[Rfam]
Rfam assigns this 75-nucleotide sequence from Streptomyces sparsogenes to the family "ASpks TB sRNA". The family's RNA type in Rfam is antisense RNA. The family's consensus secondary structure is taken from published work. Lineage of the source: Bacteria > Bacillati > Actinomycetota > Kitasatosporales > Streptomyces sparsogenes.
RNA sequence: CUUGACGGACCCGAGCCACAGCGGCCGGUCCGCCGGACGGUCCCGGCCGUAGGUGGCCAGGAGCGCCUGGGCCUC
Numbered sequence: 001c002u003u004g005a006c007g008g009a010c011c012c013g014a015g016c017c018a019c020a021g022c023g024g025c026c027g028g029u030c031c032g033c034c035g036g037a038c039g040g041u042c043c044c045g046g047c048c049g050u051a052g053g054u055g056g057c058c059a060g061g062a063g064c065g066c067c068u069g070g071g072c073c074u075c
Stems, first nucleotide, its partner, number of pairs: 015025003031071001033069001038065002043060001045058001047056003